[Rfam]
RNA sequence: CUCCGAGGAGCGUUGCAGCGCCUCCCACCGGCAGGGCCGGCGGGGCGUGAGGCUCGGGCAUCAUCUGGCAACGACGCUCAUCCACA
Numbered sequence: 001c002u003c004c005g006a007g008g009a010g011c012g013u014u015g016c017a018g019c020g021c022c023u024c025c026c027a028c029c030g031g032c033a034g035g036g037c038c039g040g041c042g043g044g045g046c047g048u049g050a051g052g053c054u055c056g057g058g059c060a061u062c063a064u065c066u067g068g069c070a071a072c073g074a075c076g077c078u079c080a081u082c083c084a085c086a
Stems, first nucleotide, its partner, number of pairs: 002058005019047006
Shown here is an 86-nucleotide RNA sequence from Verminephrobacter eiseniae, a member of the family "SAH (S-adenosyl-L-homocysteine) riboswitch aptamer".
It scores 56 bits against the family's covariance model.
The literature on the family includes a 2008 paper in Mol Cell by Wang et al., "Riboswitches that sense S-adenosylhomocysteine and activate genes involved in coenzyme recycling".
The source organism's lineage runs through Bacteria, Pseudomonadota, Burkholderiales, Verminephrobacter and Verminephrobacter eiseniae.